The family of this 119-nucleotide sequence from Mycolicibacterium sarraceniae is "Actinobacteria sRNA Ms_IGR-7". For this family Rfam cites "Identification of small RNAs in Mycobacterium smegmatis using heterologous Hfq" (Li et al., RNA, 2013). A search with the family's covariance model found it, with a score of 82 bits.
[Rfam]
RNA sequence: UCGAAGUGCCUUUCCGAACUGGACCCGAUUGCUGCUUGAGAACACCAAUCAUCCCAGUUCAGAGGGCACUUUCUUCAUUCCGACACUCGGCUAACGCCACCGCCCGUCGGUGGAUUCAG
Numbered sequence: 001u002c003g004a005a006g007u008g009c010c011u012u013u014c015c016g017a018a019c020u021g022g023a024c025c026c027g028a029u030u031g032c033u034g035c036u037u038g039a040g041a042a043c044a045c046c047a048a049u050c051a052u053c054c055c056a057g058u059u060c061a062g063a064g065g066g067c068a069c070u071u072u073c074u075u076c077a078u079u080c081c082g083a084c085a086c087u088c089g090g091c092u093a094a095c096g097c098c099a100c101c102g103c104c105c106g107u108c109g110g111u112g113g114a115u116u117c118a119g
Stems, first nucleotide, its partner, number of pairs: 003072011016060002019057004027050003031046001033044002102117001104113003